The record is a 199-nucleotide RNA from Pogona vitticeps, which matches "U1 spliceosomal RNA" in Rfam. Pairs were carried over by alignment from the consensus structure, which is taken from published work. The family's RNA type in Rfam is spliceosomal small nuclear RNA. The family is grouped with related families in Rfam's "U1 clan". Rfam describes the family as follows. U1 is a small nuclear RNA (snRNA) component of the spliceosome (involved in pre-mRNA splicing). Its 5' end forms complementary base pairs with the 5' splice junction, thus defining the 5' donor site of an intron. There are significant differences in sequence and secondary structure between metazoan and yeast U1 snRNAs, the latter being much longer (568 nucleotides as compared to 164 nucleotides in human).
Nucleotides: 199
Base pairs, nucleotide, nucleotide: 012160013159014158015157016048017047018046019045020044021043023042024041025040026039027038049128050127051126052125054124056121057120058119060117061116062115063114064113130155131154132153133151134150135149137147138146180198182197184195186193187192
Number, partner (000 for none) and nucleotide at each position: 001000a002000u003000a004000c005000u006000u007000a008000c009000c010000u011000g012160g013159c014158a015157g016048g017047g018046g019045a020044g021043a022000u023042a024041c025040c026039a027038u028000g029000a030000u031000c032000a033000u034000g035000a036000a037000a038027g039026u040025g041024g042023u043021u044020u045019u046018u047017c048016c049128a050127g051126g052125g053000u054124g055000a056121g057120g058119c059000u060117c061116a062115u063114c064113c065000a066000u067000u068000g069000c070000a071000c072000u073000u074000c075000a076000g077000g078000u079000g080000g081000g082000c083000u084000g085000a086000u087000u088000g089000g090000g091000u092000g093000a094000g095000g096000c097000u098000c099000a100000u101000c102000c103000a104000u105000u106000g107000c108000a109000c110000u111000u112000c113064g114063g115062g116061u117060g118000g119058g120057c121056u122000g123000a124054u125052u126051c127050c128049u129000g130155u131154g132153a133151u134150u135149u136000c137147c138146c139000u140000a141000c142000a143000u144000g145000u146138g147137g148000g149135a150134a151133a152000a153132u154131c155130a156000a157015c158014u159013g160012c161000a162000u163000a164000a165000u166000u167000u168000g169000u170000g171000g172000u173000a174000g175000u176000g177000g178000g179000g180198g181000a182197c183000u184195g185000a186193g187192u188000u189000u190000c191000u192187g193186u194000a195184c196000u197182g198180c199000a